[Rfam]
RNA sequence: CAAUUAACUCAAUAACGCACUCAUAUAAUGACGAGAAUAAGGCUCGUAAGUAUCUACCAAACUACCGUAAAUAGUUUGACUAUGGGUGAGCGAUGAAGUUUG
Numbered sequence: 001c002a003a004u005u006a007a008c009u010c011a012a013u014a015a016c017g018c019a020c021u022c023a024u025a026u027a028a029u030g031a032c033g034a035g036a037a038u039a040a041g042g043c044u045c046g047u048a049a050g051u052a053u054c055u056a057c058c059a060a061a062c063u064a065c066c067g068u069a070a071a072u073a074g075u076u077u078g079a080c081u082a083u084g085g086g087u088g089a090g091c092g093a094u095g096a097a098g099u100u101u102g
Stems, first nucleotide, its partner, number of pairs: 018088008029049001031047005058078007